[Rfam]
The record is a 76-nucleotide sequence from Alligator mississippiensis, which matches "Mammalian CPEB3 ribozyme" in Rfam.
RNA sequence: UGAUGGGGACCAUAGCAGAAGCAUUCACAUUGCAACCCCUGUCGCAUAAUACAUGGUAAUGUCUGCAAAUUCUGCU
Numbered sequence: 001u002g003a004u005g006g007g008g009a010c011c012a013u014a015g016c017a018g019a020a021g022c023a024u025u026c027a028c029a030u031u032g033c034a035a036c037c038c039c040u041g042u043c044g045c046a047u048a049a050u051a052c053a054u055g056g057u058a059a060u061g062u063c064u065g066c067a068a069a070u071u072c073u074g075c076u
Stems, first nucleotide, its partner, number of pairs: 006039003014076007021033003043065002046062002
Dot-bracket structure: .....[[[.....((((((((((.......)))...]]]...((.((.............)).))....)))))))